The family of this 561-nucleotide RNA sequence is "ROOL RNA".
RNA sequence: UCUUCCCCAUUUAAACAUGAUUACCUCGGUGCAGAUGGAUUUUUCAAUCCUGCCGAGACGCAUGGUAAUGAGUUGUUCCAAUUCGAGAUAUUGGAUUGACUGACAGCUUUUGCUUGAAAGUGAUUUUAAGCAAGAAGAUAGAAACUAUCAACAAUUCUGCGUGGUGUAUCAUCAUAGAGAAGUCAAAAGCAGAAUCCUUGUGGCUGACGAAUAAUAGACGCUUGCUGUGCAAGAAUAAUCCGUUGAUGUGUGCGGUGUGAGAGACCACGGACUAUAUACGGAAAACUCAUUAAGUCAGUUUGCCUUGAAUCCGGGAAACCGGAGUAUAACACAAGAAAUUCGUUAAAGUAGCGGUAUGGCAGAAACAAAUAAUCAAGGCUCUGCAUGAACCAAAACAUUCUGAAAGAACCGUGAAAUUUGUGGGUAUCAAUCCCAUUCGUGCUUGACAGGGGUAAGAAGCCAAGGGUCGCUCCCGGAAGCUCAGACUUAUCUCCACGGCGGCUGAAUAUGACUGUAUCUAUGGUGGAUAAAGGGAAACCUUAAUCAUGUUUACUUUGCAGU
Numbered sequence: 001u002c003u004u005c006c007c008c009a010u011u012u013a014a015a016c017a018u019g020a021u022u023a024c025c026u027c028g029g030u031g032c033a034g035a036u037g038g039a040u041u042u043u044u045c046a047a048u049c050c051u052g053c054c055g056a057g058a059c060g061c062a063u064g065g066u067a068a069u070g071a072g073u074u075g076u077u078c079c080a081a082u083u084c085g086a087g088a089u090a091u092u093g094g095a096u097u098g099a100c101u102g103a104c105a106g107c108u109u110u111u112g113c114u115u116g117a118a119a120g121u122g123a124u125u126u127u128a129a130g131c132a133a134g135a136a137g138a139u140a141g142a143a144a145c146u147a148u149c150a151a152c153a154a155u156u157c158u159g160c161g162u163g164g165u166g167u168a169u170c171a172u173c174a175u176a177g178a179g180a181a182g183u184c185a186a187a188a189g190c191a192g193a194a195u196c197c198u199u200g201u202g203g204c205u206g207a208c209g210a211a212u213a214a215u216a217g218a219c220g221c222u223u224g225c226u227g228u229g230c231a232a233g234a235a236u237a238a239u240c241c242g243u244u245g246a247u248g249u250g251u252g253c254g255g256u257g258u259g260a261g262a263g264a265c266c267a268c269g270g271a272c273u274a275u276a277u278a279c280g281g282a283a284a285a286c287u288c289a290u291u292a293a294g295u296c297a298g299u300u301u302g303c304c305u306u307g308a309a310u311c312c313g314g315g316a317a318a319c320c321g322g323a324g325u326a327u328a329a330c331a332c333a334a335g336a337a338a339u340u341c342g343u344u345a346a347a348g349u350a351g352c353g354g355u356a357u358g359g360c361a362g363a364a365a366c367a368a369a370u371a372a373u374c375a376a377g378g379c380u381c382u383g384c385a386u387g388a389a390c391c392a393a394a395a396c397a398u399u400c401u402g403a404a405a406g407a408a409c410c411g412u413g414a415a416a417u418u419u420g421u422g423g424g425u426a427u428c429a430a431u432c433c434c435a436u437u438c439g440u441g442c443u444u445g446a447c448a449g450g451g452g453u454a455a456g457a458a459g460c461c462a463a464g465g466g467u468c469g470c471u472c473c474c475g476g477a478a479g480c481u482c483a484g485a486c487u488u489a490u491c492u493c494c495a496c497g498g499c500g501g502c503u504g505a506a507u508a509u510g511a512c513u514g515u516a517u518c519u520a521u522g523g524u525g526g527a528u529a530a531a532g533g534g535a536a537a538c539c540u541u542a543a544u545c546a547u548g549u550u551u552a553c554u555u556u557g558c559a560g561u
Stems, first nucleotide, its partner, number of pairs: 008557002014551002022543001025057005037050005059163003063159002071108006079098008109134011137149005173523001177519001182513001188509001189503001192341003195337001197335006203299006221233004239282005248272002251269001254266003258289004300362005310323005345417001351412005399485004423434002438497003449494004455488002459481001464474003530541004